[Rfam]
The family of this 196-nucleotide RNA from Streptomyces sp. SID3343 is "c-di-AMP riboswitch aptamer (ydaO/yuaA leader)". Rfam's curators write: This family represents a conserved RNA structure found upstream of the ydaO and yuaA genes in Bacillus subtilis and related genes in other bacteria.

RNA sequence: GGGACUAAAAACCCGAAAAGGCAGGAGCGGGGGAACCAGGUAGUACGCCGUCGGAUGACACCUGUUCACAGGUGUUCGUCGGACGGCUUGGGGUGAAGCCGUGUGCCCUCCCAUCCGUGGGAGGCGACAUGCGGCCGGGCGAGACUCUCCAGCCCGAAUCCGACAGCUCACCUCGUAGGCGUGGGAGAAGGAACCA
Numbered sequence: 001g002g003g004a005c006u007a008a009a010a011a012c013c014c015g016a017a018a019a020g021g022c023a024g025g026a027g028c029g030g031g032g033g034a035a036c037c038a039g040g041u042a043g044u045a046c047g048c049c050g051u052c053g054g055a056u057g058a059c060a061c062c063u064g065u066u067c068a069c070a071g072g073u074g075u076u077c078g079u080c081g082g083a084c085g086g087c088u089u090g091g092g093g094u095g096a097a098g099c100c101g102u103g104u105g106c107c108c109u110c111c112c113a114u115c116c117g118u119g120g121g122a123g124g125c126g127a128c129a130u131g132c133g134g135c136c137g138g139g140c141g142a143g144a145c146u147c148u149c150c151a152g153c154c155c156g157a158a159u160c161c162g163a164c165a166g167c168u169c170a171c172c173u174c175g176u177a178g179g180c181g182u183g184g185g186a187g188a189a190g191g192a193a194c195c196a
Stems, first nucleotide, its partner, number of pairs: 005025002027176006037090005091161003099134007137155004